[Rfam]
RNA: FMN riboswitch aptamer (RFN element)
Nucleotides: 137
Stems, first nucleotide, its partner, number of pairs: 004134007017029003031117002033107002035065004060105002069082002087103005109120003
Number, partner (000 for none) and nucleotide at each position: 001000a002000u003000a004134a005133a006132a007131c008130u009129u010128c011000g012000g013000g014000g015000u016000c017029g018028g019027g020000u021000g022000a023000a024000a025000a026000u027019c028018c029017c030000a031117a032116c033107c034106g035065g036064c037063g038062g039000u040000g041000a042000a043000g044000c045000a046000g047000u048000u049000u050000u051000u052000a053000c054000u055000g056000a057000u058000a059000a060105g061104c062038c063037c064036g065035u066000g067000a068000c069082c070081u071000g072000u073000u074000a075000u076000u077000u078000a079000a080000c081070a082069g083000u084000u085000g086000a087103u088102u089101u090100g091099g092000u093000u094000c095000g096000a097000a098000u099091c100090c101089a102088a103087a104061g105060c106034c107033g108000a109120c110119c111118g112000u113000a114000c115000a116032g117031u118111c119110g120109g121000g122000u123000a124000u125000a126000a127000a128010g129009a130008a131007g132006u133005u134004u135000a136000a137000a